[Rfam]
RNA sequence: UCCUUUAAUUAGGACAACGUGUAUAAAUCAUACGCUCCCCCUUUACAUGAGAUGUGAGAGGGAGCGUUUUU
Dot-bracket structure: ((((......)))).................(((((((((..(((((.....)))))).))))))))....
RNA: S. aureus tsr31 small RNA
Organism: Staphylococcus simulans